RNA sequence: GGUCAUGAGUACCAGCGCCAAGCCCCGGCUCGCUGGUCGGCAACCCUCCAGCUGCGGUGGGGUGCUCCGGGUGAUGACCGGGCUCCCGAAAGUCGGGAAGCAAGCGCGCUGU
Numbered sequence: 001g002g003u004c005a006u007g008a009g010u011a012c013c014a015g016c017g018c019c020a021a022g023c024c025c026c027g028g029c030u031c032g033c034u035g036g037u038c039g040g041c042a043a044c045c046c047u048c049c050a051g052c053u054g055c056g057g058u059g060g061g062g063u064g065c066u067c068c069g070g071g072u073g074a075u076g077a078c079c080g081g082g083c084u085c086c087c088g089a090a091a092g093u094c095g096g097g098a099a100g101c102a103a104g105c106g107c108g109c110u111g112u
Stems, first nucleotide, its partner, number of pairs: 001079004009038001011037006021030002039066003044062003048057002082101003086096001089093001
A member of the RNA family "SAM (S-adenosyl methionine) riboswitch aptamer" from Nocardia arthritidis, 112 nucleotides long. It scores 101 bits against the family's covariance model. About the family: SAM-IV is a mRNA element that regulates gene expression via direct sensing of S-adenosylmethionine (SAM or AdoMet). SAM-IV riboswitches share conserved nucleotide positions with the previously described SAM-I riboswitches sequence analysis and molecular recognition experiments suggest that SAM-I and SAM-IV riboswitches share similar ligand binding sites, but have different scaffolds. On this family, see Weinberg et al., RNA 2008: "The aptamer core of SAM-IV riboswitches mimics the ligand-binding site of SAM-I riboswitches". The source organism's lineage runs through Bacteria, Actinomycetota, Actinomycetes, Nocardiaceae and Nocardia. The family has 40 seed sequences and 2,360 matches in Rfam 15.1.